Background:
The family of this 136-nucleotide sequence is "Group II catalytic intron D1-D4-4". Rfam describes the family as follows. Group II introns are found in rRNA, tRNA and mRNA of organelles in fungi, plants and protists, and also in mRNA in bacteria. It scores 118 bits against the family's covariance model. For this family Rfam cites "Control of branch-site choice by a group II intron" (Chu et al., EMBO J, 2001).
RNA sequence: CAGUGGGAGGUAGACCCACCAGGAUAAGAGUCGGAGUCCUGUAGCUAGGGUAGCAAUAUGGAGGGAAACCAAGAUAUUGAAGCCUACCGACAACGUUAUCGUAAGGAUAAUGGCGAAUUAUCAGGUUGUAGCGAAA
Numbered sequence: 001c002a003g004u005g006g007g008a009g010g011u012a013g014a015c016c017c018a019c020c021a022g023g024a025u026a027a028g029a030g031u032c033g034g035a036g037u038c039c040u041g042u043a044g045c046u047a048g049g050g051u052a053g054c055a056a057u058a059u060g061g062a063g064g065g066a067a068a069c070c071a072a073g074a075u076a077u078u079g080a081a082g083c084c085u086a087c088c089g090a091c092a093a094c095g096u097u098a099u100c101g102u103a104a105g106g107a108u109a110a111u112g113g114c115g116a117a118u119u120a121u122c123a124g125g126u127u128g129u130a131g132c133g134a135a136a
Stems, first nucleotide, its partner, number of pairs: 020041005049088005054079006063070002095111006113129003